[Rfam]
RNA sequence: GAGGCGGUAUCCGGACUGGAACUGCACUCGUGCCGUGACAGUAUGCAAUUGAACAACGUCAAACUGUACUAUGGUAAGGUCGGAUUCUGCUUAGAACCUUAAGGACUGAGACAGAAGG
Numbered sequence: 001g002a003g004g005c006g007g008u009a010u011c012c013g014g015a016c017u018g019g020a021a022c023u024g025c026a027c028u029c030g031u032g033c034c035g036u037g038a039c040a041g042u043a044u045g046c047a048a049u050u051g052a053a054c055a056a057c058g059u060c061a062a063a064c065u066g067u068a069c070u071a072u073g074g075u076a077a078g079g080u081c082g083g084a085u086u087c088u089g090c091u092u093a094g095a096a097c098c099u100u101a102a103g104g105a106c107u108g109a110g111a112c113a114g115a116a117g118g
Stems, first nucleotide, its partner, number of pairs: 001029003004025005010020002087114003090110005097104002
RNA: pan motif
Organism: Insulibacter thermoxylanivorax